[Rfam]
RNA sequence: AAAAAGGGUGUUUGCCUGCUAAAUGGCACGCAGUCUCUUUGGGGCUGUGCAGAAUCGCUAGCAAGAGAUUCUGAACACAUAAUUUUUGGAAACUGGGGCUGCCGAUUGCCUUUGCAUUUGGCGCCUCU
Number, nucleotide and partner (000 for none) at each position: 001a000002a000003a000004a000005a000006g000007g000008g078009u077010g076011u075012u074013u028014g027015c026016c025017u000018g000019c000020u000021a000022a000023a000024u000025g016026g015027c014028a013029c049030g048031c047032a046033g045034u044035c043036u042037c000038u000039u000040u000041g000042g036043g035044g034045c033046u032047g031048u030049g029050c073051a072052g071053a070054a069055u068056c067057g000058c000059u000060a000061g000062c000063a000064a000065g000066a000067g056068a055069u054070u053071c052072u051073g050074a012075a011076c010077a009078c008079a000080u000081a000082a000083u000084u000085u000086u000087u000088g000089g000090a000091a000092a000093c000094u000095g000096g126097g125098g124099c123100u000101g122102c121103c120104g119105a118106u000107u000108g000109c000110c114111u000112u000113u000114g110115c000116a000117u000118u105119u104120g103121g102122c101123g099124c098125c097126u096127c000128u000
This 128-nucleotide sequence from Araneus ventricosus belongs to the Rfam family "U11 spliceosomal RNA". The family's consensus secondary structure is taken from published work. Its family is annotated with mRNA 5'-splice site recognition, pre-mRNA 5'-splice site binding and U11 snRNP in the Gene Ontology.